[Rfam]
RNA sequence: GAUAGGUGUGUUGUAUUCUGUGUCUAACAAGGCAUGGAGCAACCGAGCCAGCACAUCUCAGGGAAUUCAGUAGCUCAAUAGGAUAGAGCAAUGGUCGUCUAAACCAUCGGUAGCGGGUUCAAAUCCCGUCUGAUCUUAAAAAGCAAAAGACUGGCUCGGUGCCACGUGAAAGGUGAUUAAUGCCGGACCCCUCGGGGAAUUCGGUGCACCCUAGCUCGCAAGGCGACGGUGUUUGUUCGAAGGCAAGACGUAGCUUCUUAGCGGAGGCGAACUGCUCGCAAGGCAGACGUUACGGCGACGGACGAUUAGCGUGACACGACAGGACUACUGCCUUGGUCCUCAAAAACGGCAUCACUGAGAGAUACAUGGUGAGCGGAAGCCACCAUGUGGAUAGGUCCUAACCAAGUCUGUCGCAGGACGCGGGUACGGGAAACCAAAGGCUCUCGCUGAAAGGUGUAAUCUCAGCCU
Numbered sequence: 001g002a003u004a005g006g007u008g009u010g011u012u013g014u015a016u017u018c019u020g021u022g023u024c025u026a027a028c029a030a031g032g033c034a035u036g037g038a039g040c041a042a043c044c045g046a047g048c049c050a051g052c053a054c055a056u057c058u059c060a061g062g063g064a065a066u067u068c069a070g071u072a073g074c075u076c077a078a079u080a081g082g083a084u085a086g087a088g089c090a091a092u093g094g095u096c097g098u099c100u101a102a103a104c105c106a107u108c109g110g111u112a113g114c115g116g117g118u119u120c121a122a123a124u125c126c127c128g129u130c131u132g133a134u135c136u137u138a139a140a141a142a143g144c145a146a147a148a149g150a151c152u153g154g155c156u157c158g159g160u161g162c163c164a165c166g167u168g169a170a171a172g173g174u175g176a177u178u179a180a181u182g183c184c185g186g187a188c189c190c191c192u193c194g195g196g197g198a199a200u201u202c203g204g205u206g207c208a209c210c211c212u213a214g215c216u217c218g219c220a221a222g223g224c225g226a227c228g229g230u231g232u233u234u235g236u237u238c239g240a241a242g243g244c245a246a247g248a249c250g251u252a253g254c255u256u257c258u259u260a261g262c263g264g265a266g267g268c269g270a271a272c273u274g275c276u277c278g279c280a281a282g283g284c285a286g287a288c289g290u291u292a293c294g295g296c297g298a299c300g301g302a303c304g305a306u307u308a309g310c311g312u313g314a315c316a317c318g319a320c321a322g323g324a325c326u327a328c329u330g331c332c333u334u335g336g337u338c339c340u341c342a343a344a345a346a347c348g349g350c351a352u353c354a355c356u357g358a359g360a361g362a363u364a365c366a367u368g369g370u371g372a373g374c375g376g377a378a379g380c381c382a383c384c385a386u387g388u389g390g391a392u393a394g395g396u397c398c399u400a401a402c403c404a405a406g407u408c409u410g411u412c413g414c415a416g417g418a419c420g421c422g423g424g425u426a427c428g429g430g431a432a433a434c435c436a437a438a439g440g441c442u443c444u445c446g447c448u449g450a451a452a453g454g455u456g457u458a459a460u461c462u463c464a465g466c467c468u
Stems, first nucleotide, its partner, number of pairs: 001059001004058006010043005017038009045157007143219002159317003163313005173355005182205006188197003206232005214224003235303005248290004253268004272286005330350003334346001357445005363389008390461003395434001396431004453467003
RNA: Giant, ornate, lake- and Lactobacillales-derived (GOLLD) RNA